Rfam assigns this 575-nucleotide part of an RNA from Armadillidium nasatum to the family "Eukaryotic small subunit ribosomal RNA". The match comes from Rfam's covariance-model search (1585 bits). For this family Rfam cites "Crystal structure of the ribosome at 5.5 A resolution" (Yusupov et al., Science, 2001).
Nucleotides: 575
Stems, first nucleotide, its partner, number of pairs: 003502001005500002009495001010462001016460003020457003025057002031054002037049002064415003074336003079331002083329002089324004108143001110141002117133002120130003152184003158178008190283005204271004253262002294317004301312003338386003345377003352374008390412004394405004417438002420435003440451001442449002468493001470492003476488005508539003511535006518527003546566002548563001550562002
Number, partner (000 for none) and nucleotide at each position: 001000u002000g003502u004000c005500u006499c007000a008000a009495a010462g011000a012000u013000u014000a015000a016460g017459c018458c019000a020457u021456g022455c023000a024000u025057g026056u027000c028000u029000c030000a031054g032053u033000a034000c035000c036000u037049g038048c039000c040000g041000a042000c043000c044000u045000a046000a047000g048038g049037c050000g051000a052000a053032a054031c055000c056026g057025c058000g059000a060000a061000u062000g063000g064415c065414u066413c067000a068000u069000u070000a071000a072000a073000u074336c075335a076334g077000u078000c079331a080330u081000g082000a083329u084328u085000u086000a087000u088000g089324g090323g091322a092321u093000g094000u095000u096000g097000u098000u099000a100000a101000a102000u103000c104000c105000u106000u107000a108143c109000u110141c111140g112000g113000a114000u115000a116000a117133c118132u119000g120130u121129g122128g123000u124000a125000a126000u127000u128122c129121u130120a131000g132118a133117g134000c135000u136000a137000a138000u139000a140111c141110g142000u143108g144000c145000a146000a147000u148000a149000c150000g151000u152184c153183u154182c155000c156000g157000a158178c159177c160176u161175c162174g163173a164172c165171c166000c167000u168000c169000g170000c171165g172164g173163u174162c175161g176160a177159g178158g179000g180000a181000a182154g183153g184152g185000c186000g187000c188000a189000u190283u191282u192281g193280u194279u195000a196000g197000a198000c199000c200000a201000a202000a203000a204271a205270c206269c207268g208000g209000g210000u211000g212000g213000a214000c215000a216000g217000u218000c219000g220000u221000u222000g223000g224000g225000c226000a227000u228000u229000c230000g231000c232000u233000u234000u235000c236000a237000g238000c239000u240000a241000g242000c243000c244000c245000a246000c247000g248000u249000c250000c251000a252000u253262u254261c255000c256000u257000c258000u259000a260000c261254g262253g263000u264000u265000a266000u267000g268207u269206g270205g271204u272000g273000a274000c275000u276000c277000u278000g279194a280193a281192u282191a283190a284000c285000u286000a287000c288000g289000g290000c291000c292000g293000a294317g295316c296315g297314c298000u299000g300000a301312g302311g303310u304000c305000u306000u307000a308000g309000u310303a311302c312301c313000g314297g315296c316295g317294c318000c319000g320000u321092a322091u323090c324089u325000u326000u327000c328084a329083a330080g331079u332000g333000u334076c335075u336074g337000c338386c339385u340384u341000a342000u343000c344000a345377g346376c347375u348000c349000u350000c351000g352374a353373u354372u355371g356370u357369a358368g359367g360000u361000u362000a363000u364000u365000c366000g367359c368358c369357u370356a371355c372354a373353a374352u375347g376346g377345c378000u379000g380000u381000a382000a383000c384340g385339g386338g387000u388000a389000a390412c391411g392410g393409g394405g395404a396403a397402u398000c399000a400000g401000g402397g403396u404395u405394c406000g407000a408000u409393u410392c411391c412390g413066g414065a415064g416000a417438g418437g419000g420435a421434g422433c423000c424000u425000g426000a427000g428000a429000a430000a431000c432000g433422g434421c435420u436000a437418c438417c439000a440451c441000a442449u443448c444000u445000a446000a447000g448443g449442a450000a451440g452000g453000c454000a455022g456021c457020a458018g459017g460016c461000a462010c463000g464000c465000a466000a467000a468493u469000u470492a471491c472490c473000c474000a475000a476488u477487c478486c479485c480484g481000g482000c483000u484480c485479g486478g487477g488476g489000a490472g491471g492470u493468a494000g495009u496000g497000a498000c499006g500005a501000a502003a503000a504000a505000u506000a507000a508539c509538g510537a511535u512534g513533c514532g515531g516530g517000a518527c519526u520525c521000u522000u523000c524000c525520g526519a527518g528000g529000c530516c531515u532514c533513g534512c535511a536000a537510u538509c539508g540000g541000a542000a543000u544000g545000a546566g547565u548563u549000c550562a551561a552000u553000u554000u555000a556000a557000a558000a559000a560000c561551u562550u563548g564000g565547a566546c567000g568000a569000g570000g571000a572000u573000c574000c575000a

The organism belongs to Armadillidium, within Eukaryota.